[Rfam]
RNA: small nucleolar RNA snoR135
Organism: Camellia sinensis
RNA sequence: GAGGCAGGGAUUGUGUGUAUCGACGUUGUGCUAUUGAUCAGUGCACAGUGAUCGAAAGAGUUCCCUGCAACAAUGAACCUAUAGGUGAAGGUGGGCAGUUGUGUUUCAUUCAAAUCCCAUUGAAACUUCAACAAUCAUCUUCCCCACAAUU
Numbered sequence: 001g002a003g004g005c006a007g008g009g010a011u012u013g014u015g016u017g018u019a020u021c022g023a024c025g026u027u028g029u030g031c032u033a034u035u036g037a038u039c040a041g042u043g044c045a046c047a048g049u050g051a052u053c054g055a056a057a058g059a060g061u062u063c064c065c066u067g068c069a070a071c072a073a074u075g076a077a078c079c080u081a082u083a084g085g086u087g088a089a090g091g092u093g094g095g096c097a098g099u100u101g102u103g104u105u106u107c108a109u110u111c112a113a114a115u116c117c118c119a120u121u122g123a124a125a126c127u128u129c130a131a132c133a134a135u136c137a138u139c140u141u142c143c144c145c146a147c148a149a150u151u
Stems, first nucleotide, its partner, number of pairs: 004068007015046006084145002087142008098132004